RNA sequence: GUGACAGAAGAGAGUGAGCACACAUGGUUCCUUCUUUCAUGAAGUCCAUGCUUGAAGCUCUGUGUGCUCACCCUCUAUCUGUCAC
Numbered sequence: 001g002u003g004a005c006a007g008a009a010g011a012g013a014g015u016g017a018g019c020a021c022a023c024a025u026g027g028u029u030c031c032u033u034c035u036u037u038c039a040u041g042a043a044g045u046c047c048a049u050g051c052u053u054g055a056a057g058c059u060c061u062g063u064g065u066g067c068u069c070a071c072c073c074u075c076u077a078u079c080u081g082u083c084a085c
Base pairs, nucleotide, nucleotide: 001085002084003083004082005081006080007079008078010075011074012073014071015070016069017068018067019066020065021064023062024061
mir-156 microRNA precursor family: an 85-nucleotide sequence from Thalictrum thalictroides.
Pairs were carried over by alignment from the consensus structure, which was predicted with PFOLD.
This family represents the plant microRNA (miRNA) precursor mir-156.